Record summary
The family of this 131-nucleotide sequence from Labeo rohita is "Small nucleolar RNA SNORA75". Lineage of the source: Eukaryota > Teleostei > Osteoglossocephalai > Otophysi > Labeo. Rfam describes the family as follows. U23 belongs to the H/ACA class of snoRNAs. snoRNAs bind a number of proteins (including dyskerin, Gar1p and Nop10p in the case of the H/ACA class) to form snoRNP complexes.
[Rfam]
RNA sequence: UGCUUCUCAUGAGCUCCUCUCUGUCAAUCCAGUGACGGUGUAUGGAUUCGCACGAGAAGUAGAUUAAAAUUCGCAGUAAAACCGGUGUUUCCAUUAUAUUGGAACAUACCCAUGUCUGAUGUGAGACACUU
Numbered sequence: 001u002g003c004u005u006c007u008c009a010u011g012a013g014c015u016c017c018u019c020u021c022u023g024u025c026a027a028u029c030c031a032g033u034g035a036c037g038g039u040g041u042a043u044g045g046a047u048u049c050g051c052a053c054g055a056g057a058a059g060u061a062g063a064u065u066a067a068a069a070u071u072c073g074c075a076g077u078a079a080a081a082c083c084g085g086u087g088u089u090u091c092c093a094u095u096a097u098a099u100u101g102g103a104a105c106a107u108a109c110c111c112a113u114g115u116c117u118g119a120u121g122u123g124a125g126a127c128a129c130u131u
Stems, first nucleotide, its partner, number of pairs: 003059006013051002015046003021038005071124005089104005